[Rfam]
RNA sequence: UUCUUAUCUAGAGAAGCUGAGGGAUCUGGCCCUUCGAAGCUUCAGCAACCGACCCAUUCGUGGUAAAGGUGCUACUUCCAGCAAGCGACAAAUCGCUUGAACGAUAAGAA
Numbered sequence: 001u002u003c004u005u006a007u008c009u010a011g012a013g014a015a016g017c018u019g020a021g022g023g024a025u026c027u028g029g030c031c032c033u034u035c036g037a038a039g040c041u042u043c044a045g046c047a048a049c050c051g052a053c054c055c056a057u058u059c060g061u062g063g064u065a066a067a068g069g070u071g072c073u074a075c076u077u078c079c080a081g082c083a084a085g086c087g088a089c090a091a092a093u094c095g096c097u098u099g100a101a102c103g104a105u106a107a108g109a110a
Stems, first nucleotide, its partner, number of pairs: 001110008013043005021032003026081004044073004049069002052064003082099006
RNA: SAM riboswitch aptamer (S box leader)